Shown here is a 361-nucleotide RNA sequence from Bacteroides sp. OF04-15BH, a member of the family "Bacterial RNase P class A". The family's RNA type in Rfam is ribozyme. From the family's description: Ribonuclease P (RNase P) is a ubiquitous endoribonuclease, found in archaea, bacteria and eukarya as well as chloroplasts and mitochondria. Its best characterised activity is the generation of mature 5'-ends of tRNAs by cleaving the 5'-leader elements of precursor-tRNAs. Cellular RNase Ps are ribonucleoproteins. RNA from bacterial RNase Ps retains its catalytic activity in the absence of the protein subunit, i.e. it is a ribozyme. Isolated eukaryotic and archaeal RNase P RNA has not been shown to retain its catalytic function, but is still essential for the catalytic activity of the holoenzyme. Although the archaeal and eukaryotic holoenzyme s have a much greater protein content than the bacterial ones, the RNA cores from all the three lineages are homologous -- helices corresponding to P1, P2, P3, P4, and P10/11 are common to all cellular RNase P RNAs. Yet, there is considerable sequence variation, particularly among the eukaryotic RNAs. Identified in Yersinia as Ysr151/RnpB. The source organism's lineage runs through Bacteria, Bacteroidota, Bacteroidales, Bacteroidaceae and Bacteroides. The base pairs follow the family's consensus structure, which is taken from published work. It scores 237 bits against the family's covariance model.
[Rfam]
RNA sequence: GCAGUCGGGCAGUCUGUCGCUGGCCUUUUGCAAAAAAGGCGGGAGGAAAGUCCGGGCAAUAUAGGGCACCCCACUUCUUAAUGGGAAGUAGUCCGCGAGGGUUAGAUCAUGCAGAAGAAAACAACCGCCUGUUUCGGCAGGUAAGGGUGAGAAGGCGAGGUAAGAGCUCACCAGGCGGGCGGUGACGUCCGUGCUGUGCAUUCUGGGGAUUGAAAGUUCGCGUAAACCGGCGUUAACGAAAGGCGGCCCGUCUGAGUCGGAGGGUAGAACGAUAGAGCCUUGUGGUGACACAAGGCCUGGAUAAAUGACAGACGCCUUGAUCUUCAAGGAACAGAACCCGGCUUAUCGCCCGGCUGCUUUU
Numbered sequence: 001g002c003a004g005u006c007g008g009g010c011a012g013u014c015u016g017u018c019g020c021u022g023g024c025c026u027u028u029u030g031c032a033a034a035a036a037a038g039g040c041g042g043g044a045g046g047a048a049a050g051u052c053c054g055g056g057c058a059a060u061a062u063a064g065g066g067c068a069c070c071c072c073a074c075u076u077c078u079u080a081a082u083g084g085g086a087a088g089u090a091g092u093c094c095g096c097g098a099g100g101g102u103u104a105g106a107u108c109a110u111g112c113a114g115a116a117g118a119a120a121a122c123a124a125c126c127g128c129c130u131g132u133u134u135c136g137g138c139a140g141g142u143a144a145g146g147g148u149g150a151g152a153a154g155g156c157g158a159g160g161u162a163a164g165a166g167c168u169c170a171c172c173a174g175g176c177g178g179g180c181g182g183u184g185a186c187g188u189c190c191g192u193g194c195u196g197u198g199c200a201u202u203c204u205g206g207g208g209a210u211u212g213a214a215a216g217u218u219c220g221c222g223u224a225a226a227c228c229g230g231c232g233u234u235a236a237c238g239a240a241a242g243g244c245g246g247c248c249c250g251u252c253u254g255a256g257u258c259g260g261a262g263g264g265u266a267g268a269a270c271g272a273u274a275g276a277g278c279c280u281u282g283u284g285g286u287g288a289c290a291c292a293a294g295g296c297c298u299g300g301a302u303a304a305a306u307g308a309c310a311g312a313c314g315c316c317u318u319g320a321u322c323u324u325c326a327a328g329g330a331a332c333a334g335a336a337c338c339c340g341g342c343u344u345a346u347c348g349c350c351c352g353g354c355u356g357c358u359u360u361u
Stems, first nucleotide, its partner, number of pairs: 001357010011346001012313007020043002023040006048344003052341005057212004064249004069208005074088005089104001091102004105203002111199003125146002127142006154172002157169003174194001175192007216270004227260005241253004277296008